[Rfam]
RNA sequence: CUGCUGCUGCUACUGUAGCUGCUGCUGCUGCUACUGUAGCUGCUGCUGUAGCUGCUGCUGUAGCUGCAGUAGUAGCAGCUACUGUAGCUGCUACUGUAGCUGCUGCUGUAGCUGCUACUGUAGCUGCUACUGUAGCUGCUGCUGUAGCUGCUGCUGUAGCUGCUACUACUGCUGUUGUAGCUGCUACUACUGCUGCUGUAGCUGCUACUACUGCUGCUGCUGCUACUGUAGCUGCUACUGUAGCUGCUACUACUGCAGCUACAGUAGCAGCUACAGUAGCAGCUACAGUAGCAGCUACAGUAGCAGCUACAGUAG
Dot-bracket structure: .....(((((.(((..((((...(((((((((((..(((((((..........(((((.(...).)))))(((((...(((..((((...))))..)))...)))))((.((.(((((.(((((..((((.(((((.(...)....((....((.((((................................................)))).))....)).))))).))))..))))).))))).)).))....)))))))..))))))))....(((.....)))...)))))))..))).)))))........

Notes
A member of the RNA family "isrG Hfq binding RNA" from Takifugu flavidus, 315 nucleotides long. It scores 108 bits against the family's covariance model. The base pairs follow the family's consensus structure, which was predicted with RNAalifold. By type it is a small RNA. The source organism's lineage runs through Eukaryota, Chordata, Teleostei, Ctenosquamata and Takifugu. The family has 5 seed sequences and 24 matches in Rfam 15.1.